[Rfam]
RNA sequence: AAAGAAAAAACCCUGCGGCAAUGCCUGCAGGGCCCUUCUAUAUCCCAUAGGGGACAGAAGGCAAAGGGAGAGGAGAAACCGGAGGAAGAACUUAUGGGGAAACGUAAGUCUUCUCCGCGG
Numbered sequence: 001a002a003a004g005a006a007a008a009a010a011c012c013c014u015g016c017g018g019c020a021a022u023g024c025c026u027g028c029a030g031g032g033c034c035c036u037u038c039u040a041u042a043u044c045c046c047a048u049a050g051g052g053g054a055c056a057g058a059a060g061g062c063a064a065a066g067g068g069a070g071a072g073g074a075g076a077a078a079c080c081g082g083a084g085g086a087a088g089a090a091c092u093u094a095u096g097g098g099g100a101a102a103c104g105u106a107a108g109u110c111u112u113c114u115c116c117g118c119g120g
Stems, first nucleotide, its partner, number of pairs: 011032006017025003033068005043054004080117004085113004090109005

Shown here is a 120-nucleotide sequence from Bacillus sp. B-jedd, a member of the family "ylbH leader". Gene Ontology term of the family: regulation of gene expression. This family is a putative regulatory RNA structure that is found upstream of the ylbH gene in B. subtilis and related low GC Gram-positive bacteria. It scores 109 bits against the family's covariance model.